Shown here is a 396-nucleotide sequence from Pseudomonas fluorescens, a member of the family "Pseudomonas sRNA CrcZ". Its family is annotated with carbon catabolite repression of transcription in the Gene Ontology. Lineage of the source: Bacteria > Pseudomonadota > Pseudomonadales > Pseudomonadaceae > Pseudomonas.
RNA sequence: ACAAGACCAAUAACAAGCAAUGCAAAAGACAAUAAAAAUAAGACGAAUCGACUCACGCACAAUAAAAACAAGACGGCGAGAGGCGCAGCUAACUGAUUCUUUUGGAGAGGCGUUGUAUUUGGGGCUUGCCCCACAACCAGGCCGAGAACAAUAAAAACUGUCUCAAGACAGGUGCCUGAACUGGUUGGAUCGAUUGAUCACUGCAACACAGCGACCAAAGCAAUCCGUUUGCUCUUGGCUCCCGAUUGGGAGGGUCACAAAGGAAAAAACCUUGUGGCGUGGGCACUCAACAAAAACAAGAAGCCCGAAACCAAUAAUAAAAAUAGAGCACGUAACUAAUUCUGGGGGAGCUUCGGCUCCCCUUGUGGUUUCUGUCGUUCCGCCUCCCCGCAGCCU
Numbered sequence: 001a002c003a004a005g006a007c008c009a010a011u012a013a014c015a016a017g018c019a020a021u022g023c024a025a026a027a028g029a030c031a032a033u034a035a036a037a038a039u040a041a042g043a044c045g046a047a048u049c050g051a052c053u054c055a056c057g058c059a060c061a062a063u064a065a066a067a068a069c070a071a072g073a074c075g076g077c078g079a080g081a082g083g084c085g086c087a088g089c090u091a092a093c094u095g096a097u098u099c100u101u102u103u104g105g106a107g108a109g110g111c112g113u114u115g116u117a118u119u120u121g122g123g124g125c126u127u128g129c130c131c132c133a134c135a136a137c138c139a140g141g142c143c144g145a146g147a148a149c150a151a152u153a154a155a156a157a158c159u160g161u162c163u164c165a166a167g168a169c170a171g172g173u174g175c176c177u178g179a180a181c182u183g184g185u186u187g188g189a190u191c192g193a194u195u196g197a198u199c200a201c202u203g204c205a206a207c208a209c210a211g212c213g214a215c216c217a218a219a220g221c222a223a224u225c226c227g228u229u230u231g232c233u234c235u236u237g238g239c240u241c242c243c244g245a246u247u248g249g250g251a252g253g254g255u256c257a258c259a260a261a262g263g264a265a266a267a268a269a270c271c272u273u274g275u276g277g278c279g280u281g282g283g284c285a286c287u288c289a290a291c292a293a294a295a296a297c298a299a300g301a302a303g304c305c306c307g308a309a310a311c312c313a314a315u316a317a318u319a320a321a322a323a324u325a326g327a328g329c330a331c332g333u334a335a336c337u338a339a340u341u342c343u344g345g346g347g348g349a350g351c352u353u354c355g356g357c358u359c360c361c362c363u364u365g366u367g368g369u370u371u372c373u374g375u376c377g378u379u380c381c382g383c384c385u386c387c388c389c390g391c392a393g394c395c396u
Stems, first nucleotide, its partner, number of pairs: 049085002052082003100220005114213003134187007158171005239253002242250001274378006281306004326371004344363008